[Rfam]
Nucleotides: 093
Stems, first nucleotide, its partner, number of pairs: 001093005010081009019071003025054002028052007038087005058068003
Number, partner (000 for none) and nucleotide at each position: 001093g002092g003091c004090a005089g006000a007000g008000u009000a010081g011080g012079c013078a014077c015076c016075g017074u018073g019071c020070g021069u022000u023000a024000a025054g026053u027000g028052c029051c030050a031049a032048g033047g034046g035000a036000u037000g038087g039086g040085a041084c042083g043000u044000g045000g046034c047033c048032u049031u050030u051029g052028g053026a054025c055000g056000a057000a058068g059067g060066g061000c062000u063000g064000g065000a066060c067059c068058c069021g070020c071019g072000g073018u074017g075016c076015g077014g078013u079012g080011c081010c082000g083042c084041g085040u086039u087038c088000g089005c090004u091003g092002u093001c
Shown here is a 93-nucleotide RNA sequence from Gelria sp. Kuro-4, a member of the family "THF (Tetrahydrofolate) riboswitch aptamer". NCBI's taxonomy places the organism under Bacteria, Bacillati, Clostridia, Thermoanaerobacterales, Gelria. Tetrahydrofolate (THF) riboswitch was first reported for Ames et al. as an RNA motif in 5' untranslated (5'-UTR)regions of folate transport and biosynthesis genes in Firmicutes genomes. The match comes from Rfam's covariance-model search (76 bits).